[Rfam]
RNA sequence: AUGCGUGUAAAGACCCAUCCGAGGCAGUGAUGCUCGCGUAUGCGGGAUGGGAGUAAUAGGGUGGGCAACGCAC
Numbered sequence: 001a002u003g004c005g006u007g008u009a010a011a012g013a014c015c016c017a018u019c020c021g022a023g024g025c026a027g028u029g030a031u032g033c034u035c036g037c038g039u040a041u042g043c044g045g046g047a048u049g050g051g052a053g054u055a056a057u058a059g060g061g062u063g064g065g066c067a068a069c070g071c072a073c
Stems, first nucleotide, its partner, number of pairs: 002072005014065007033046005
The family of this 73-nucleotide RNA is "DUF3800-X RNA". Pairs were carried over by alignment from the consensus structure, which is taken from published work. It is one of the family's seed sequences. By type it is a small RNA.